[Rfam]
RNA sequence: GCCUCUGAUGGUGAUCAAACAAAUAACUUUCGUUCUUCCGAGUUGUCCAUGCGAAAUUAUAUGGAGACCUGAACUGAAGAGGC
Numbered sequence: 001g002c003c004u005c006u007g008a009u010g011g012u013g014a015u016c017a018a019a020c021a022a023a024u025a026a027c028u029u030u031c032g033u034u035c036u037u038c039c040g041a042g043u044u045g046u047c048c049a050u051g052c053g054a055a056a057u058u059a060u061a062u063g064g065a066g067a068c069c070u071g072a073a074c075u076g077a078a079g080a081g082g083c
Base pairs, nucleotide, nucleotide: 003081004080005079006078
RNA: Small nucleolar RNA Z159/U59
Organism: Trifolium medium